[Rfam]
Rfam assigns this 301-nucleotide RNA from Zostera marina to the family "Plant signal recognition particle RNA". The family's RNA type in Rfam is non-coding RNA gene. The literature on the family includes a 2000 paper in Science by Batey et al., "Crystal structure of the ribonucleoprotein core of the signal recognition particle". The source organism's lineage runs through Eukaryota, Viridiplantae, Streptophyta, Streptophytina and Zostera. The match comes from Rfam's covariance-model search (146 bits). The family's consensus secondary structure is taken from published work.
RNA sequence: GCCGAGCUCUGUAACGUGGGCUUGUCACAAAAUAGAGCAUUAAGGUAUUUGAAUAAUUUGGUAUUGAGCUCAAGGUUGACAUUAUGAGCUAGCUUUGAUUUUGCCCGUUUCCAAGUUGGACAGUGGAUGCUAUGUUUCAGCCUAACGCUUGAAUCAUAUCCUCCCUAAACUUGAGGGUAAUGCGUGAGGCUGGUUUCACAGAGCAGCGAUUACCUCUCACUCUCAACGGUGGAAGGAUUACAAGUCAUUUGCUCAAAUUAUUAAUUAGCCUUGGAAUCCACCAAAUUCAACAAAUAUUUUU
Dot-bracket structure: ((.((((((........))))))....(......).))...((((((((((...(.(((.((.......((((((((((.(((..(((..(....(((.((((.((..(((((.((((.(.((((((.(.((((.(((((.(....).))))).)))).).)))........((((......(((....(((......)))....)))....))))..))).)))))..)))))))....))))))).)..))).)))..))....)))))))).....)).))).)...)))))))))).